[Rfam]
RNA: Flavo-1 RNA
RNA sequence: CCCUAGCCCUGAUGGAAGCGGCAUCCUUUUUCCUGCUCCUUUAGCAGGGAAAAGAUACAGCGGACAGCAGGAAAAGCU
Numbered sequence: 001c002c003c004u005a006g007c008c009c010u011g012a013u014g015g016a017a018g019c020g021g022c023a024u025c026c027u028u029u030u031u032c033c034u035g036c037u038c039c040u041u042u043a044g045c046a047g048g049g050a051a052a053a054g055a056u057a058c059a060g061c062g063g064a065c066a067g068c069a070g071g072a073a074a075a076g077c078u
Base pairs, nucleotide, nucleotide: 009070010069011068013066014065018061019060023056024055025054029051030050031049032048033047034046035045036044